Plastid-rpl16 group II-D1 intron: a 47-nucleotide RNA sequence from Mucuna macrocarpa. The family's consensus secondary structure was predicted with LocARNA. Rfam describes the family as follows. Plastid-rpl16 is a non-coding RNA (ncRNA) recognised in plastids. It is one of the family's seed sequences. The source organism's lineage runs through Eukaryota, Embryophyta, Spermatophyta, Magnoliopsida and Mucuna. A reference for the family is Richter et al. (2023), "Retrograde signaling in plants: A critical review focusing on the GUN pathway and beyond", Plant Commun. The family has 538 seed sequences and 1,446 matches in Rfam 15.1.

RNA sequence: AAGAGCUCUGAAUCAAUAAAAACUGAGAAUAUUGAUUCAAGAAAAAA
Numbered sequence: 001a002a003g004a005g006c007u008c009u010g011a012a013u014c015a016a017u018a019a020a021a022a023c024u025g026a027g028a029a030u031a032u033u034g035a036u037u038c039a040a041g042a043a044a045a046a047a
Stems, first nucleotide, its partner, number of pairs: 007041001010038008